[Rfam]
The family of this 34-nucleotide RNA sequence is "L31-Firmicutes ribosomal protein leader".
It is one of the family's seed sequences.
RNA sequence: CUUUGAGGCAGGCAAUGCCUCAAGGCGGAAGGAG
Numbered sequence: 001c002u003u004u005g006a007g008g009c010a011g012g013c014a015a016u017g018c019c020u021c022a023a024g025g026c027g028g029a030a031g032g033a034g
Base pairs, nucleotide, nucleotide: 001025002024003023004022005021006020007019008018009017010016